[Rfam]
RNA sequence: CUGCAAUUAACUAAACAACACACAUACAUCGACACAUAAUCCGGGGUGCUGUAACUCAUUGAGUUUCGGUCGGUUUUAUGGGGUGUAUGGAGGCCCAAC
Numbered sequence: 001c002u003g004c005a006a007u008u009a010a011c012u013a014a015a016c017a018a019c020a021c022a023c024a025u026a027c028a029u030c031g032a033c034a035c036a037u038a039a040u041c042c043g044g045g046g047u048g049c050u051g052u053a054a055c056u057c058a059u060u061g062a063g064u065u066u067c068g069g070u071c072g073g074u075u076u077u078a079u080g081g082g083g084u085g086u087a088u089g090g091a092g093g094c095c096c097a098a099c
Base pairs, nucleotide, nucleotide: 023089024088025087026086027085028084029083030082035080036079037078038077039076041073042072043071048070049069050068051067